[Rfam]
RNA sequence: CUUGUAAAGGAAACCAGGGCUACACACGAGUAACACGGCAGUUUGCUACAUAAAGUAGAUAGAGUGUGUGAAGAAUAAACGAGAUCCUUUAAAGUAGUUAGAGAAAAAAGAAACGGUAUGUCAACGCUGAUAAAGUUUAAGCCAAUUAGCACAGUGAACAUAAAACAAGAAGCCGUUGAAUGGAAGAACUAACCGCGGGAGAUGACACAGCACCUUUACAUU
Numbered sequence: 001c002u003u004g005u006a007a008a009g010g011a012a013a014c015c016a017g018g019g020c021u022a023c024a025c026a027c028g029a030g031u032a033a034c035a036c037g038g039c040a041g042u043u044u045g046c047u048a049c050a051u052a053a054a055g056u057a058g059a060u061a062g063a064g065u066g067u068g069u070g071a072a073g074a075a076u077a078a079a080c081g082a083g084a085u086c087c088u089u090u091a092a093a094g095u096a097g098u099u100a101g102a103g104a105a106a107a108a109a110g111a112a113a114c115g116g117u118a119u120g121u122c123a124a125c126g127c128u129g130a131u132a133a134a135g136u137u138u139a140a141g142c143c144a145a146u147u148a149g150c151a152c153a154g155u156g157a158a159c160a161u162a163a164a165a166c167a168a169g170a171a172g173c174c175g176u177u178g179a180a181u182g183g184a185a186g187a188a189c190u191a192a193c194c195g196c197g198g199g200a201g202a203u204g205a206c207a208c209a210g211c212a213c214c215u216u217u218a219c220a221u222u
Stems, first nucleotide, its partner, number of pairs: 003220008016089001022069006032043003046058004097193005107181001112177006118161004126155004137149004
RAGATH-8 RNA: a 222-nucleotide RNA. On this family, see Weinberg et al., Nat Chem Biol 2015: "New classes of self-cleaving ribozymes revealed by comparative genomics analysis". The family's RNA type in Rfam is small RNA. Its family is annotated with catalytic activity in the Gene Ontology. The sequence is in the family's curated seed alignment.